The family of this 133-nucleotide RNA from Propithecus coquereli is "Small nucleolar RNA SNORA68". From the family's description: U68 is a member of the H/ACA class of small nucleolar RNAs (snoRNAs) which act as guides in the the modification of uridines to pseudouridines. Rfam 15.1 lists 1,079 matches to the family in 643 species. The organism belongs to Propithecus, within Eukaryota. Rfam links the family to the GO terms RNA processing and nucleolus. It scores 95 bits against the family's covariance model. The literature on the family includes a 1997 paper in Genes Dev by Ganot et al., "The family of box ACA small nucleolar RNAs is defined by an evolutionarily conserved secondary structure and ubiquitous sequence elements essential for RNA accumulation". By type it is an H/ACA-box small nucleolar RNA.
RNA sequence: CUUGUGCCUAAACCCAAGAAUCCCUGAUUCUUGUAGCGCUCAUUUAAACAGAGGUGCAAACAGCAAGCGGACAUUGUCAUUUUUGGGGGGCUGUGGCCGUGCACCUUGAAGUGAAUUUGGAGGUUCUAUACCC
Numbered sequence: 001c002u003u004g005u006g007c008c009u010a011a012a013c014c015c016a017a018g019a020a021u022c023c024c025u026g027a028u029u030c031u032u033g034u035a036g037c038g039c040u041c042a043u044u045u046a047a048a049c050a051g052a053g054g055u056g057c058a059a060a061c062a063g064c065a066a067g068c069g070g071a072c073a074u075u076g077u078c079a080u081u082u083u084u085g086g087g088g089g090g091c092u093g094u095g096g097c098c099g100u101g102c103a104c105c106u107u108g109a110a111g112u113g114a115a116u117u118u119g120g121a122g123g124u125u126c127u128a129u130a131c132c133c
Stems, first nucleotide, its partner, number of pairs: 002059008019044003025038002028035001069126004074121002081111008090102002